[Rfam]
Description: Alphaproteobacterial ar14: a 118-nucleotide RNA from Mesorhizobium sanjuanii. Taxonomically the source falls in Mesorhizobium (Bacteria, Pseudomonadota, Alphaproteobacteria, Phyllobacteriaceae).

RNA sequence: UGGUGUCGGCCAUCUACUCCUCCCAGAUGUGGUGCCGACGCUGAAUGGGGCGCACCUCCUCCCGCGUCUCAUUCGAAAUAGAGCCCGCUGCCACCUCCUCCCGGUAGCGGGCCUUUUC
Number, nucleotide and partner (000 for none) at each position: 001u000002g000003g000004u000005g000006u000007c037008g036009g035010c000011c029012a028013u027014c000015u000016a000017c000018u000019c000020c000021u000022c000023c000024c000025a000026g000027a013028u012029g011030u000031g000032g000033u000034g000035c009036c008037g007038a000039c000040g000041c000042u000043g074044a073045a072046u071047g070048g069049g068050g067051c066052g065053c000054a000055c000056c000057u000058c000059c000060u000061c000062c000063c000064g000065c052066g051067u050068c049069u048070c047071a046072u045073u044074c043075g000076a000077a000078a000079u000080a000081g000082a000083g112084c111085c110086c109087g108088c107089u106090g105091c104092c103093a000094c000095c000096u000097c000098c000099u000100c000101c000102c000103g092104g091105u090106a089107g088108c087109g086110g085111g084112c083113c000114u000115u000116u000117u000118c000

Gene Ontology term of the family: biological process involved in symbiotic interaction. The pairing is the family consensus, mapped onto this sequence. A search with the family's covariance model found it, with a score of 67 bits. Smr14C2 was renamed NfeR1 (Nodule Formation Efficiency RNA) highly expressed in salt stress and during the symbiotic interaction on legume roots.